[Rfam]
RNA sequence: CUAAAACCGACUGAUGACCAACUGCAGACGGAUACUUAGAGAGAAUUAGUAGUCAGAGCACGAAAGGUGAAAGCGUUACUAAGAGUCGACGAUAAAAAAUAGCUUAGUAGCCCACCAAGAGGGAAAGAGAUAACCCUCAAGGAGCUAAAGAGAAUCUCACUUUAGACCCUUUCGUUACUCGUUUUAUAAAA
Number, nucleotide and partner (000 for none) at each position: 001c049002u048003a047004a046005a000006a000007c000008c000009g000010a000011c039012u038013g037014a036015u000016g000017a000018c000019c000020a000021a000022c000023u000024g000025c000026a000027g000028a000029c000030g000031g000032a000033u000034a000035c000036u014037u013038a012039g011040a000041g000042a000043g000044a000045a000046u004047u003048a002049g001050u000051a000052g000053u000054c000055a000056g000057a000058g000059c000060a000061c174062g173063a172064a171065a170066g169067g000068u000069g000070a000071a000072a000073g000074c000075g111076u110077u109078a108079c107080u106081a105082a104083g103084a000085g000086u000087c000088g000089a000090c000091g000092a000093u000094a000095a000096a000097a000098a000099a000100u000101a000102g000103c083104u082105u081106a080107g079108u078109a077110g076111c075112c000113c000114a000115c000116c000117a000118a000119g138120a137121g136122g135123g134124a000125a000126a000127g158128a157129g156130a155131u154132a000133a000134c123135c122136c121137u120138c119139a000140a000141g000142g000143a000144g000145c165146u164147a163148a162149a161150g160151a000152g000153a000154a131155u130156c129157u128158c127159a000160c150161u149162u148163u147164a146165g145166a000167c000168c000169c066170u065171u064172u063173c062174g061175u000176u000177a000178c000179u000180c000181g000182u000183u000184u000185u000186a000187u000188a000189a000190a000191a000
A member of the RNA family "IMES-1 RNA motif", 191 nucleotides long. On this family, see Weinberg et al., Nature 2009: "Exceptional structured noncoding RNAs revealed by bacterial metagenome analysis".